[Rfam]
RNA sequence: UGAGAAGUUGCUCCUUAUGAGUAAUUUUAGUUAAGCAUGAAGAAAAUAUCUUUGGACGGAAUUUCUUCAUGCUUUUAUUAUAUCA
Numbered sequence: 001u002g003a004g005a006a007g008u009u010g011c012u013c014c015u016u017a018u019g020a021g022u023a024a025u026u027u028u029a030g031u032u033a034a035g036c037a038u039g040a041a042g043a044a045a046a047u048a049u050c051u052u053u054g055g056a057c058g059g060a061a062u063u064u065c066u067u068c069a070u071g072c073u074u075u076u077a078u079u080a081u082a083u084c085a
Base pairs, nucleotide, nucleotide: 004028005027006026007025008024009023010022011021012020013019033074034073035072036071037070038069039068040067041066042065043064044063045062
Dot-bracket structure: ...((((((((((.....))))))))))....(((((((((((((................)))))))))))))...........
ctRNA: an 85-nucleotide RNA from Lactococcus cremoris. A reference for the family is Duan et al. (1998), "Involvement of antisense RNA in replication control of the lactococcal plasmid pND324", FEMS Microbiol Lett. Rolling circle replication plasmids contain a number of mechanisms to maintain a low copy number. One of these methods is to transcribe a small RNA called ctRNA (for counter-transcribed RNA) than is transcribed on the opposite strand to RepB the replication initiation protein. ctRNA binds to the mRNA of repB and causes translational inhibition. Rfam links the family to the GO terms plasmid copy number maintenance and mRNA binding. By type it is an antisense RNA. The organism belongs to Lactococcus cremoris subsp. cremoris, within Bacteria. The family's consensus secondary structure was predicted with ILM.